[Rfam]
RNA sequence: AAAAUUGGUAGAGGUGCAAGAAGCAAAGAGUAGAUCAUUGGAUAUGGUUCAGGACAUAGAGGAAAGUGAUUGAAAGGUGUGAUUGCCGAAGGGAAAUGGACCUGGGACAUUUUGCCUGGUCAUAGGGCUAAGAGCUCUAUGACUGUCAUCAUACAAUUUGAUGGAGUGCUACCUAAAGA
Numbered sequence: 001a002a003a004a005u006u007g008g009u010a011g012a013g014g015u016g017c018a019a020g021a022a023g024c025a026a027a028g029a030g031u032a033g034a035u036c037a038u039u040g041g042a043u044a045u046g047g048u049u050c051a052g053g054a055c056a057u058a059g060a061g062g063a064a065a066g067u068g069a070u071u072g073a074a075a076g077g078u079g080u081g082a083u084u085g086c087c088g089a090a091g092g093g094a095a096a097u098g099g100a101c102c103u104g105g106g107a108c109a110u111u112u113u114g115c116c117u118g119g120u121c122a123u124a125g126g127g128c129u130a131a132g133a134g135c136u137c138u139a140u141g142a143c144u145g146u147c148a149u150c151a152u153a154c155a156a157u158u159u160g161a162u163g164g165a166g167u168g169c170u171a172c173c174u175a176a177a178g179a
Stems, first nucleotide, its partner, number of pairs: 007173005016086004023080003033071007090117003094113002096110003118144011146164006
Record summary:
The family of this 179-nucleotide RNA from Acetivibrio ethanolgignens is "Lysine riboswitch aptamer". The source organism's lineage runs through Bacteria, Bacillota, Acetivibrionales, Acetivibrionaceae and Acetivibrio.